A member of the RNA family "Fluoride riboswitch aptamer (crcB RNA motif)" from Paenalicyclobacillus ferrooxydans, 64 nucleotides long.
Taxonomically the source falls in Paenalicyclobacillus (Bacteria, Bacillota, Caryophanales, Alicyclobacillaceae).
RNA sequence: AACAAAUCAGGUGAUGGAGCUCACCGUUAACUUCCUGCAAAAGGAUAAUGGCUCCUGCGGACGG
Numbered sequence: 001a002a003c004a005a006a007u008c009a010g011g012u013g014a015u016g017g018a019g020c021u022c023a024c025c026g027u028u029a030a031c032u033u034c035c036u037g038c039a040a041a042a043g044g045a046u047a048a049u050g051g052c053u054c055c056u057g058c059g060g061a062c063g064g
Stems, first nucleotide, its partner, number of pairs: 010025004016055006033045004